[Rfam]
RNA sequence: CUCUUUGUCAAUGAUGUUUUAAGUCAAAUGUCUGAACAUAUGAAUUUCAGUGAUUCUUAUUAUUAUUAUUUUUUUACUGAGACAAGAG
Numbered sequence: 001c002u003c004u005u006u007g008u009c010a011a012u013g014a015u016g017u018u019u020u021a022a023g024u025c026a027a028a029u030g031u032c033u034g035a036a037c038a039u040a041u042g043a044a045u046u047u048c049a050g051u052g053a054u055u056c057u058u059a060u061u062a063u064u065a066u067u068a069u070u071u072u073u074u075u076a077c078u079g080a081g082a083c084a085a086g087a088g
Base pairs, nucleotide, nucleotide: 002087003086004085006084007083008082009081